Shown here is a 294-nucleotide RNA from Colletotrichum gloeosporioides, a member of the family "5' ureB small RNA". For this family Rfam cites "Helicobacter pylori 5'ureB-sRNA, a cis-encoded antisense small RNA, negatively regulates ureAB expression by transcription termination" (Wen et al., J Bacteriol, 2013). Taxonomically the source falls in Colletotrichum gloeosporioides species complex (Eukaryota, Fungi, Dikarya, Hypocreomycetidae).
[Rfam]
RNA sequence: CUCGUUCGCCUGCUGCGGGCAGAUGAAGUGGAUGUGGGUGUCGAUGCCGCCGGCGGUGAUGAUCUUGCCUUCGCCGGCCACCACGUCCGUACAGCUGCCGACGAUCAUGCCGGGCGUCACGCCGUCCAUGACGUCCGGGUUGCCCGCCUUGCCGAUGGCGGAGAUCAUGCCGUUCUUGACACCGAUGUCCGCCUUGUAAAUGCCGGACCAGUCGACGAUGAGCGCGUUUGUCACAACCAUGUCCAAUGACUCCGAAUCCGGCCGGCCCGUCGCUUGGCCCAUUCCUUCUCUCAG
Numbered sequence: 001c002u003c004g005u006u007c008g009c010c011u012g013c014u015g016c017g018g019g020c021a022g023a024u025g026a027a028g029u030g031g032a033u034g035u036g037g038g039u040g041u042c043g044a045u046g047c048c049g050c051c052g053g054c055g056g057u058g059a060u061g062a063u064c065u066u067g068c069c070u071u072c073g074c075c076g077g078c079c080a081c082c083a084c085g086u087c088c089g090u091a092c093a094g095c096u097g098c099c100g101a102c103g104a105u106c107a108u109g110c111c112g113g114g115c116g117u118c119a120c121g122c123c124g125u126c127c128a129u130g131a132c133g134u135c136c137g138g139g140u141u142g143c144c145c146g147c148c149u150u151g152c153c154g155a156u157g158g159c160g161g162a163g164a165u166c167a168u169g170c171c172g173u174u175c176u177u178g179a180c181a182c183c184g185a186u187g188u189c190c191g192c193c194u195u196g197u198a199a200a201u202g203c204c205g206g207a208c209c210a211g212u213c214g215a216c217g218a219u220g221a222g223c224g225c226g227u228u229u230g231u232c233a234c235a236a237c238c239a240u241g242u243c244c245a246a247u248g249a250c251u252c253c254g255a256a257u258c259c260g261g262c263c264g265g266c267c268c269g270u271c272g273c274u275u276g277g278c279c280c281a282u283u284c285c286u287u288c289u290c291u292c293a294g
Base pairs, nucleotide, nucleotide: 001294002293004291008287011163013161014160015159016158017075018074021071022070029052030051031050033049034048036047038045039044056068057067058066076153077152085149088146089145094143095142097140098139099137100135101134102133106130107129112127113126114125115124116122169278170277171276172275176272178271179270180269182265183264190226191225192224194222195221206213228260230258236251240249